The record is a 131-nucleotide RNA sequence from Chanos chanos, which matches "Small nucleolar RNA SNORA75" in Rfam.
Gene Ontology terms of the family: RNA processing and nucleolus.
The family's consensus secondary structure was predicted with PFOLD.
Rfam classes the family as an H/ACA-box small nucleolar RNA.
On this family, see Ganot et al., Genes Dev 1997: "The family of box ACA small nucleolar RNAs is defined by an evolutionarily conserved secondary structure and ubiquitous sequence elements essential for RNA accumulation".
The source organism's lineage runs through Eukaryota, Bilateria, Teleostei, Otomorpha and Chanos.
U23 belongs to the H/ACA class of snoRNAs. snoRNAs bind a number of proteins (including dyskerin, Gar1p and Nop10p in the case of the H/ACA class) to form snoRNP complexes. This class are thought to guide the sites of modification of uridines to pseudouridines by forming direct base pairing interactions with substrate RNAs. Targets include ribosomal and spliceosomal RNAs as well as the Trypanosoma spliced leader RNA (SL RNA) as possibly other, still unknown cellular RNAs. U23 can direct the pseudouridylation of U97 in human 18S rRNA (Bachellerie JP, Ganot, P unpublished data).
RNA sequence: UUCUUCUCAUGAGCUCCUCUCUGCCCAUGCUGUGGCAGUGUAUGGAUUCGCACGAGAAGUAGAGAAACCUUCACAGUUAAACAGGUCCCUCCGUUGUAGUGGGGGAGGCCCAUGUCUGAUGUGAGACAACA
Numbered sequence: 001u002u003c004u005u006c007u008c009a010u011g012a013g014c015u016c017c018u019c020u021c022u023g024c025c026c027a028u029g030c031u032g033u034g035g036c037a038g039u040g041u042a043u044g045g046a047u048u049c050g051c052a053c054g055a056g057a058a059g060u061a062g063a064g065a066a067a068c069c070u071u072c073a074c075a076g077u078u079a080a081a082c083a084g085g086u087c088c089c090u091c092c093g094u095u096g097u098a099g100u101g102g103g104g105g106a107g108g109c110c111c112a113u114g115u116c117u118g119a120u121g122u123g124a125g126a127c128a129a130c131a
Stems, first nucleotide, its partner, number of pairs: 003059006013051002015046003021038005071124005088105006